[Rfam]
RNA sequence: GCAAGCGCCUCCUGAAACAUCGGGCACUAUGGUUGGAAACACCAUAGCUGAAUGUGGUCAAAUUCAAGGAAGCCUAAGUCCUCUGGGGGAUAAGGUAAUCUUGAGCCAAGCUCUACGUCCCUGGUAGAGAAGGUGCAGAGACUGGUUAUAGGUAGCUCAGGGGAUAAUAGAGUGAUUGUAAUCGCCUAUAACACAACGGCCACCACCUACGGACAAUCCGUCUAGGGUGAAGGAAUAGUCCAGAGAGUGGGGAAACUCACAC
Numbered sequence: 001g002c003a004a005g006c007g008c009c010u011c012c013u014g015a016a017a018c019a020u021c022g023g024g025c026a027c028u029a030u031g032g033u034u035g036g037a038a039a040c041a042c043c044a045u046a047g048c049u050g051a052a053u054g055u056g057g058u059c060a061a062a063u064u065c066a067a068g069g070a071a072g073c074c075u076a077a078g079u080c081c082u083c084u085g086g087g088g089g090a091u092a093a094g095g096u097a098a099u100c101u102u103g104a105g106c107c108a109a110g111c112u113c114u115a116c117g118u119c120c121c122u123g124g125u126a127g128a129g130a131a132g133g134u135g136c137a138g139a140g141a142c143u144g145g146u147u148a149u150a151g152g153u154a155g156c157u158c159a160g161g162g163g164a165u166a167a168u169a170g171a172g173u174g175a176u177u178g179u180a181a182u183c184g185c186c187u188a189u190a191a192c193a194c195a196a197c198g199g200c201c202a203c204c205a206c207c208u209a210c211g212g213a214c215a216a217u218c219c220g221u222c223u224a225g226g227g228u229g230a231a232g233g234a235a236u237a238g239u240c241c242a243g244a245g246a247g248u249g250g251g252g253a254a255a256c257u258c259a260c261a262c
Stems, first nucleotide, its partner, number of pairs: 005027001007025004013019001031043003054203004059198001064104006073095003077091001105134002112127001119123001138241001140240005206227003211222001247260005
Rfam assigns this 262-nucleotide sequence from Rippkaea orientalis to the family "Group I catalytic intron". For this family Rfam cites "Crystal structure of a group I ribozyme domain: principles of RNA packing" (Cate et al., Science, 1996). Rfam links the family to the GO term Group I intron splicing. Pairs were carried over by alignment from the consensus structure, which is taken from published work.